This 35-nucleotide RNA sequence from Chitinophaga oryziterrae belongs to the Rfam family "DUF805b RNA".
It scores 39 bits against the family's covariance model.
The organism belongs to Chitinophaga, within Bacteria.
The family's RNA type in Rfam is cis-regulatory element.

[Rfam]
RNA sequence: UUUGGGAUUGCCGAAAACCAAGAAUAGAGUAGGCA
Numbered sequence: 001u002u003u004g005g006g007a008u009u010g011c012c013g014a015a016a017a018c019c020a021a022g023a024a025u026a027g028a029g030u031a032g033g034c035a
Stems, first nucleotide, its partner, number of pairs: 002021004010034003